[Rfam]
RNA sequence: GGUUUGUAGGCAGUGUAGUUAGCUGAUUGGACCAUCCCGCCCGCAAUCACUAACUCCACUGCCAUCAAAAC
Numbered sequence: 001g002g003u004u005u006g007u008a009g010g011c012a013g014u015g016u017a018g019u020u021a022g023c024u025g026a027u028u029g030g031a032c033c034a035u036c037c038c039g040c041c042c043g044c045a046a047u048c049a050c051u052a053a054c055u056c057c058a059c060u061g062c063c064a065u066c067a068a069a070a071c
Stems, first nucleotide, its partner, number of pairs: 003069004009063002012060004017055006024049006
Source information
This 71-nucleotide RNA from Ornithorhynchus anatinus belongs to the Rfam family "mir-34 microRNA precursor family". The family has 113 seed sequences and 2,256 matches in Rfam 15.1. Rfam's curators write: Human mir-34a was discovered computationally and later experimentally verified. The mature sequence is excised from the 5' arm of the hairpin. For this family Rfam cites "Vertebrate microRNA genes" (Lim et al., Science, 2003).